[Rfam]
RNA: c-di-AMP riboswitch aptamer (ydaO/yuaA leader)
RNA sequence: AUAAAAAAAGGGCCAAAACCAUUCGUGGUGCGGGGGACAAUAUCGAAAGUAUGCACCGGAUAACAAUCCGGCAUGUACUUGGGGUGAAUCGCGAACUUUGCGUAGGGCUGAUCUCCCAGUCCGAAUCCGACAGCUAACCUCGCCGGCCGACAUCCAGGAGGACUA
Numbered sequence: 001a002u003a004a005a006a007a008a009a010g011g012g013c014c015a016a017a018a019c020c021a022u023u024c025g026u027g028g029u030g031c032g033g034g035g036g037a038c039a040a041u042a043u044c045g046a047a048a049g050u051a052u053g054c055a056c057c058g059g060a061u062a063a064c065a066a067u068c069c070g071g072c073a074u075g076u077a078c079u080u081g082g083g084g085u086g087a088a089u090c091g092c093g094a095a096c097u098u099u100g101c102g103u104a105g106g107g108c109u110g111a112u113c114u115c116c117c118a119g120u121c122c123g124a125a126u127c128c129g130a131c132a133g134c135u136a137a138c139c140u141c142g143c144c145g146g147c148c149g150a151c152a153u154c155c156a157g158g159a160g161g162a163c164u165a
Base pairs, nucleotide, nucleotide: 011148012147013146014145018029019028020027030143031142032141033140034139035138038081039080082128083127084126090102091101092100093099105122106121107120108119